[Rfam]
RNA: TPP riboswitch aptamer (THI element)
Organism: Dokdonella sp.
RNA sequence: GCCUCGAAGCGGGGGUGCCGGCGCGGCCGGCUGAGAGAGUCCCUUCGAACCUGAUCCGGUUGGUACCGGCGUAGGGAGCUUCGCGGACGGAGGC
Numbered sequence: 001g002c003c004u005c006g007a008a009g010c011g012g013g014g015g016u017g018c019c020g021g022c023g024c025g026g027c028c029g030g031c032u033g034a035g036a037g038a039g040u041c042c043c044u045u046c047g048a049a050c051c052u053g054a055u056c057c058g059g060u061u062g063g064u065a066c067c068g069g070c071g072u073a074g075g076g077a078g079c080u081u082c083g084c085g086g087a088c089g090g091a092g093g094c
Base pairs, nucleotide, nucleotide: 006082007081008080009079010078011044012043013042014041016038017031018030019029020028021027050075051074052073053072056069057068058067059066